[Rfam]
RNA sequence: CAAGCCAGAAGAGGCGCGUCGCCCAGGUAAGAUAUCGGAGGAACCGUAAUCCGCUGAUGAUAUCCGAGGGGGAGCGACGCCGAGAUGCGGUGAAAUUCGGCUUUCACCCUAUCGACUACAGAGGCUGAAUCCUCUGGGUUGUCACCGGAUUCGUCCUGAUGGACGUCCAGCAAGGUGGAGCGCUUCUGGGUGU
Numbered sequence: 001c002a003a004g005c006c007a008g009a010a011g012a013g014g015c016g017c018g019u020c021g022c023c024c025a026g027g028u029a030a031g032a033u034a035u036c037g038g039a040g041g042a043a044c045c046g047u048a049a050u051c052c053g054c055u056g057a058u059g060a061u062a063u064c065c066g067a068g069g070g071g072g073a074g075c076g077a078c079g080c081c082g083a084g085a086u087g088c089g090g091u092g093a094a095a096u097u098c099g100g101c102u103u104u105c106a107c108c109c110u111a112u113c114g115a116c117u118a119c120a121g122a123g124g125c126u127g128a129a130u131c132c133u134c135u136g137g138g139u140u141g142u143c144a145c146c147g148g149a150u151u152c153g154u155c156c157u158g159a160u161g162g163a164c165g166u167c168c169a170g171c172a173a174g175g176u177g178g179a180g181c182g183c184u185u186c187u188g189g190g191u192g193u
Stems, first nucleotide, its partner, number of pairs: 006188006016080007024072001031064007084113004089108007114140004119136006142178005
This 193-nucleotide RNA from Pectobacterium atrosepticum belongs to the Rfam family "Lysine riboswitch aptamer".